[Rfam]
RNA sequence: CACUGACAAGGGCAAACUCGUCGAAAGGCGGGGACGCAAAGCCACCGGUCUAAGGGACAAGGUCCUACGACAGCGGGGUUGCCAAA
Numbered sequence: 001c002a003c004u005g006a007c008a009a010g011g012g013c014a015a016a017c018u019c020g021u022c023g024a025a026a027g028g029c030g031g032g033g034a035c036g037c038a039a040a041g042c043c044a045c046c047g048g049u050c051u052a053a054g055g056g057a058c059a060a061g062g063u064c065c066u067a068c069g070a071c072a073g074c075g076g077g078g079u080u081g082c083c084a085a086a
Base pairs, nucleotide, nucleotide: 012037013036017032018031019030020029021028022027040080041079042078043077045076046075047074048071049070050069055065056064057063058062
This 86-nucleotide RNA sequence from Wenzhouxiangella sp. XN24 belongs to the Rfam family "c-di-GMP-I riboswitch aptamer".
Gene Ontology term of the family: cyclic-di-GMP binding.
Lineage of the source: Bacteria > Pseudomonadati > Gammaproteobacteria > Chromatiales > Wenzhouxiangella.
The match comes from Rfam's covariance-model search (88 bits).
About the family: GEMM was predicted in a large-scale screen for bacterial structured RNA regulatory elements.